This 138-nucleotide sequence from Phytoactinopolyspora alkaliphila belongs to the Rfam family "FMN riboswitch aptamer (RFN element)". The match comes from Rfam's covariance-model search (92 bits). NCBI's taxonomy places the organism under Bacteria, Bacillati, Actinomycetota, Jiangellaceae, Phytoactinopolyspora.
[Rfam]
RNA sequence: ACGUGUGCUCCGGGGUCGGUGAAAUUCCGAGCCGGCGGUGACAGUCCGCGACCCGGCUGCCGUCAAGACGAGGUGGCCGGUUGAACCGGUGGAAUUCCGGUACCGACGGUGAAAGUCCGGAUGGGAGGCAGCACACAC
Number, nucleotide and partner (000 for none) at each position: 001a000002c000003g136004u135005g134006u133007g132008c131009u130010c127011c000012g000013g000014g000015g000016u000017c029018g028019g027020u000021g000022a000023a000024a000025u000026u000027c019028c018029g017030a000031g116032c115033c105034g104035g049036c048037g047038g046039u000040g000041a000042c000043a000044g103045u102046c038047c037048g036049c035050g000051a000052c000053c080054c079055g078056g077057c076058u075059g000060c000061c000062g000063u000064c000065a000066a000067g000068a000069c000070g000071a000072g000073g000074u000075g058076g057077c056078c055079g054080g053081u000082u000083g000084a000085a101086c100087c099088g098089g097090u000091g000092g000093a000094a000095u000096u000097c089098c088099g087100g086101u085102a045103c044104c034105g033106a000107c119108g118109g117110u000111g000112a000113a000114a000115g032116u031117c109118c108119g107120g000121a000122u000123g000124g000125g000126a000127g010128g000129c000130a009131g008132c007133a006134c005135a004136c003137a000138c000